Annotation
Rfam assigns this 244-nucleotide RNA sequence from Pyruvatibacter mobilis to the family "permuted transfer-messenger RNA". It is annotated as a non-coding RNA gene. The source organism's lineage runs through Bacteria, Pseudomonadati, Hyphomicrobiales, Parvibaculaceae and Pyruvatibacter. Gene Ontology term of the family: RNA catabolic process.
[Rfam]
RNA sequence: GGCGAUAAACGGUCUGCGCAAUAAACCUAUCGGACCCGGGGGCAGUACCCGGCGCCUCCACCACAAACCCGCCGGUAUCCCGGCAGCCCAUUGGGCACAAGCUGCGACGGCGGGUUUCUGUGGGGGCGAACUAGGAUCGACGAGGGCGUAAAGGCAGUUCUUUCGCUCGGCAUGGUUCCGCCGUUAUCGGGCCAUAUUGAUAGUUGCCAACGACAACUAUGCGGAAGCACGUCUCGCUGCGUAA
Numbered sequence: 001g002g003c004g005a006u007a008a009a010c011g012g013u014c015u016g017c018g019c020a021a022u023a024a025a026c027c028u029a030u031c032g033g034a035c036c037c038g039g040g041g042g043c044a045g046u047a048c049c050c051g052g053c054g055c056c057u058c059c060a061c062c063a064c065a066a067a068c069c070c071g072c073c074g075g076u077a078u079c080c081c082g083g084c085a086g087c088c089c090a091u092u093g094g095g096c097a098c099a100a101g102c103u104g105c106g107a108c109g110g111c112g113g114g115u116u117u118c119u120g121u122g123g124g125g126g127c128g129a130a131c132u133a134g135g136a137u138c139g140a141c142g143a144g145g146g147c148g149u150a151a152a153g154g155c156a157g158u159u160c161u162u163u164c165g166c167u168c169g170g171c172a173u174g175g176u177u178c179c180g181c182c183g184u185u186a187u188c189g190g191g192c193c194a195u196a197u198u199g200a201u202a203g204u205u206g207c208c209a210a211c212g213a214c215a216a217c218u219a220u221g222c223g224g225a226a227g228c229a230c231g232u233c234u235c236g237c238u239g240c241g242u243a244a
Base pairs, nucleotide, nucleotide: 001167002166003165004164005163014157015156016155017154026146027145028144030143031142032141036052037051038050039049040048053128054127055126056125057124058123059122060121061120168183169182170181171180